[Rfam]
Nucleotides: 396
Base pairs, nucleotide, nucleotide: 001392002391003390004389005388006387007386019365020364021363022362023361033352034351035350036349037348039346043340044339045338046337047336048070049069050068051067052066056085057084058083059082060081061080148173149172150171151170152169153168155166174210175209176208177207178206179205181203183199184198185197186196189223190222191221192220193219194218227256228255229254230253231252232251233250235248238273239272240271241270242269243268275313276312277311278310279309282308283307284306288304289303293332294331295330296329369385370384371383372382373381
Number, partner (000 for none) and nucleotide at each position: 001392g002391g003390g004389g005388g006387u007386g008000a009000a010000c011000g012000g013000u014000u015000u016000c017000g018000a019365c020364u021363c022362c023361u024000g025000a026000a027000g028000c029000c030000g031000a032000c033352c034351g035350a036349g037348g038000a039346g040000a041000a042000g043340c044339g045338u046337g047336c048070c049069g050068a051067g052066g053000a054000a055000g056085g057084c058083g059082a060081c061080g062000a063000u064000g065000a066052u067051c068050u069049c070048g071000u072000u073000a074000a075000c076000c077000a078000c079000a080061c081060g082059u083058c084057g085056c086000a087000a088000a089000a090000a091000a092000a093000u094000a095000a096000g097000u098000g099000c100000c101000g102000a103000c104000g105000a106000g107000a108000g109000u110000c111000a112000g113000c114000a115000c116000g117000c118000c119000c120000c121000g122000g123000u124000u125000c126000a127000g128000g129000g130000c131000g132000c133000c134000c135000g136000c137000g138000c139000g140000g141000a142000c143000u144000u145000c146000g147000c148173g149172c150171u151170c152169g153168c154000g155166g156000c157000c158000u159000g160000a161000u162000c163000c164000a165000c166155u167000a168153g169152u170151g171150g172149g173148c174210u175209g176208u177207c178206g179205g180000c181203c182000c183199g184198c185197g186196g187000g188000c189223g190222u191221u192220c193219c194218c195000g196186c197185c198184g199183c200000g201000g202000u203181g204000u205179c206178c207177g208176g209175c210174a211000u212000c213000a214000g215000c216000u217000a218194g219193g220192g221191a222190a223189c224000u225000c226000a227256c228255c229254g230253u231252c232251c233250a234000g235248c236000c237000c238273g239272g240271c241270c242269g243268u244000c245000g246000g247000g248235g249000g250233u251232g252231g253230a254229c255228g256227g257000g258000a259000c260000a261000u262000c263000u264000c265000a266000c267000a268243g269242c270241g271240g272239c273238u274000g275313g276312g277311a278310u279309c280000g281000u282308c283307a284306c285000a286000c287000c288304g289303g290000c291000u292000u293332g294331u295330u296329c297000g298000c299000g300000a301000g302000a303289c304288c305000g306284g307283u308282g309279g310278a311277u312276c313275c314000g315000a316000g317000u318000a319000g320000a321000g322000a323000c324000a325000c326000a327000g328000c329296g330295g331294a332293c333000u334000g335000c336047g337046c338045a339044c340043g341000g342000a343000g344000a345000a346039u347000g348037c349036c350035u351034c352033g353000c354000a355000a356000c357000g358000c359000a360000a361023g362022g363021g364020a365019g366000g367000a368000c369385c370384c371383g372382g373381g374000u375000u376000c377000g378000a379000u380000u381373c382372c383371c384370g385369g386007c387006a388005c389004c390003u391002c392001c393000a394000c395000c396000c

Description: The family of this 396-nucleotide RNA from Pseudonocardia oroxyli is "transfer-messenger RNA". It scores 135 bits against the family's covariance model. Rfam's curators write: Bacterial tmRNA, also known as 10Sa RNA or SsrA, is named for its dual tRNA and mRNA-like properties. Pairs were carried over by alignment from the consensus structure, which is taken from published work.